Source information
The family of this 135-nucleotide RNA from Crocodylus porosus is "Small nucleolar RNA SNORA1". About the family: ACA1 is a member of the H/ACA class of snoRNA that guide the sites of modification of uridines to pseudouridines. The organism belongs to Crocodylus, within Eukaryota.
[Rfam]
RNA sequence: UGCCUCGUUUAAAAAAUUAAAACAGGCACAACUUCUUAGGUGUCUGAAUUAAGCAACGUGGCUAAAGAAAUAACAGGUUAUGCUUCCAUCAUUGUAAAAUUAAUUACAGUGGUGACAAUGAGACCUGUGACAAGC
Numbered sequence: 001u002g003c004c005u006c007g008u009u010u011a012a013a014a015a016a017u018u019a020a021a022a023c024a025g026g027c028a029c030a031a032c033u034u035c036u037u038a039g040g041u042g043u044c045u046g047a048a049u050u051a052a053g054c055a056a057c058g059u060g061g062c063u064a065a066a067g068a069a070a071u072a073a074c075a076g077g078u079u080a081u082g083c084u085u086c087c088a089u090c091a092u093u094g095u096a097a098a099a100u101u102a103a104u105u106a107c108a109g110u111g112g113u114g115a116c117a118a119u120g121a122g123a124c125c126u127g128u129g130a131c132a133a134g135c
Base pairs, nucleotide, nucleotide: 002062003061004060006058007057008056023046024045025044026043027042028041029040073128074127075126076125077124087114088113089112090111091110092109